[Rfam]
RNA sequence: GGAUUGAUGAUGAGUCCCUCAUCAAAACAUUCCUUGAAAAAGCUGAACAAAAUUAGUGAAACUCACUAUAGUCUCGCUCAUCAGAACUGAGGUCC
Numbered sequence: 001g002g003a004u005u006g007a008u009g010a011u012g013a014g015u016c017c018c019u020c021a022u023c024a025a026a027a028c029a030u031u032c033c034u035u036g037a038a039a040a041a042g043c044u045g046a047a048c049a050a051a052a053u054u055a056g057u058g059a060a061a062c063u064c065a066c067u068a069u070a071g072u073c074u075c076g077c078u079c080a081u082c083a084g085a086a087c088u089g090a091g092g093u094c095c
Base pairs, nucleotide, nucleotide: 001095002094003093004092005091028058029057030056031055034050035049036048

The family of this 95-nucleotide sequence from Otolemur garnettii is "Small nucleolar RNA SNORD116". Its family is annotated with RNA processing and nucleolus in the Gene Ontology. The family's consensus secondary structure was predicted with PFOLD.